[Rfam]
RNA sequence: UAAAAAUCGUUGAAAAAGAGAGUAGCUUUUAUGGAUCGGACAGCGAAUCAGGGGCGGUGGGAGCCUGAGACGAAACCAGAAAGUGAACCGGACUUUUGAGAUGUAAUCCUGAACUUAUAGUAGGGAUUGCCGGGGGAUUCUCCCUCGUUAACAAAUCGAGUGGCCUGUUGGCUAUAAGAGUGGUACCGCGAGCAAACCUCGUCUCUUCA
Numbered sequence: 001u002a003a004a005a006a007u008c009g010u011u012g013a014a015a016a017a018g019a020g021a022g023u024a025g026c027u028u029u030u031a032u033g034g035a036u037c038g039g040a041c042a043g044c045g046a047a048u049c050a051g052g053g054g055c056g057g058u059g060g061g062a063g064c065c066u067g068a069g070a071c072g073a074a075a076c077c078a079g080a081a082a083g084u085g086a087a088c089c090g091g092a093c094u095u096u097u098g099a100g101a102u103g104u105a106a107u108c109c110u111g112a113a114c115u116u117a118u119a120g121u122a123g124g125g126a127u128u129g130c131c132g133g134g135g136g137a138u139u140c141u142c143c144c145u146c147g148u149u150a151a152c153a154a155a156u157c158g159a160g161u162g163g164c165c166u167g168u169u170g171g172c173u174a175u176a177a178g179a180g181u182g183g184u185a186c187c188g189c190g191a192g193c194a195a196a197c198c199u200c201g202u203c204u205c206u207u208c209a
Stems, first nucleotide, its partner, number of pairs: 007101002015096004025084006036073003048068005104129007131147005163172003177206004188202005
Rfam assigns this 209-nucleotide sequence from Halobacillus yeomjeoni to the family "T-box leader". NCBI's taxonomy places the organism under Bacteria, Bacillati, Bacilli, Caryophanales, Halobacillus. Rfam 15.1 lists 19,395 matches to the family in 1,923 species. Gene Ontology term of the family: tRNA binding.